[Rfam]
RNA sequence: GCCAGUAUGGUGGAAUUGGUAGACACGCAAGAUUCAAAAUCUUGUGGCUUUACGGCCGUGUCGGUUCGACCCCGACUACUGGUA
Numbered sequence: 001g002c003c004a005g006u007a008u009g010g011u012g013g014a015a016u017u018g019g020u021a022g023a024c025a026c027g028c029a030a031g032a033u034u035c036a037a038a039a040u041c042u043u044g045u046g047g048c049u050u051u052a053c054g055g056c057c058g059u060g061u062c063g064g065u066u067c068g069a070c071c072c073c074g075a076c077u078a079c080u081g082g083u084a
Stems, first nucleotide, its partner, number of pairs: 001083007010026003028044005060076005
Dot-bracket structure: (((((((..(((...........))).(((((.......)))))...............(((((.......)))))))))))).
RNA: tRNA
Organism: Candidatus Izimoplasma sp. HR2